Shown here is an 89-nucleotide sequence from Albula glossodonta, a member of the family "mir-146 microRNA precursor family". The source organism's lineage runs through Eukaryota, Actinopteri, Elopocephala, Albulidae and Albula. The literature on the family includes a 2002 paper in Curr Biol by Lagos-Quintana et al., "Identification of tissue-specific microRNAs from mouse". Gene Ontology terms of the family: miRNA-mediated post-transcriptional gene silencing and RISC complex.
[Rfam]
RNA sequence: UUGAGCUCUAGACUUUGAGAACUCCAUUCCAUUGGCUGUAGAUCAGUGUUCAGCCCGUGGAAAUCAGUUCUCCAGCCUGGAUGCUCACA
Numbered sequence: 001u002u003g004a005g006c007u008c009u010a011g012a013c014u015u016u017g018a019g020a021a022c023u024c025c026a027u028u029c030c031a032u033u034g035g036c037u038g039u040a041g042a043u044c045a046g047u048g049u050u051c052a053g054c055c056c057g058u059g060g061a062a063a064u065c066a067g068u069u070c071u072c073c074a075g076c077c078u079g080g081a082u083g084c085u086c087a088c089a
Base pairs, nucleotide, nucleotide: 008080009079011077013075018071019070020069021068022067023066034055035054036053